Source information:
The record is a 158-nucleotide RNA, which matches "Clostridiales-1 RNA" in Rfam. Rfam 15.1 lists 1,172 matches to the family in 137 species. By type it is a small RNA.
[Rfam]
RNA sequence: AACAUAGCUCAUCCAUAGGAAACAGACGUGACUGCUAGCAGGCAGCGGAUGUUUCCUAUGAGAGGAGCGGACAAACAUGAGUAUGCAGGACGAUAGUCCGGAAUACGAAUGUUUGUUACGAUUUCGAGAGUGCGCAGCACGGAGAAAACGUAUAUGUU
Numbered sequence: 001a002a003c004a005u006a007g008c009u010c011a012u013c014c015a016u017a018g019g020a021a022a023c024a025g026a027c028g029u030g031a032c033u034g035c036u037a038g039c040a041g042g043c044a045g046c047g048g049a050u051g052u053u054u055c056c057u058a059u060g061a062g063a064g065g066a067g068c069g070g071a072c073a074a075a076c077a078u079g080a081g082u083a084u085g086c087a088g089g090a091c092g093a094u095a096g097u098c099c100g101g102a103a104u105a106c107g108a109a110u111g112u113u114u115g116u117u118a119c120g121a122u123u124u125c126g127a128g129a130g131u132g133c134g135c136a137g138c139a140c141g142g143a144g145a146a147a148a149c150g151u152a153u154a155u156g157u158u
Stems, first nucleotide, its partner, number of pairs: 001158005008067003015059010027047003030043001032041003071116008081106004088099004119150002122147004130140004